[Rfam]
A member of the RNA family "small nucleolar RNA snoR114" from Brassica napus, 83 nucleotides long. Lineage of the source: Eukaryota > Viridiplantae > Streptophytina > Mesangiospermae > Brassica. Rfam classes the family as a C/D-box small nucleolar RNA. For this family Rfam cites "Mining small RNA sequencing data: a new approach to identify small nucleolar RNAs in Arabidopsis" (Chen and Wu, Nucleic Acids Res, 2009).
RNA sequence: GAGCUGUGAAGAAAAUGGUUUAGCGAUGGUUGGGUCCAUCGCAUUCAUCUGAUUUCCAGAUGGUAUAGCCACACCCUGAGCUC
Numbered sequence: 001g002a003g004c005u006g007u008g009a010a011g012a013a014a015a016u017g018g019u020u021u022a023g024c025g026a027u028g029g030u031u032g033g034g035u036c037c038a039u040c041g042c043a044u045u046c047a048u049c050u051g052a053u054u055u056c057c058a059g060a061u062g063g064u065a066u067a068g069c070c071a072c073a074c075c076c077u078g079a080g081c082u083c
Stems, first nucleotide, its partner, number of pairs: 001083004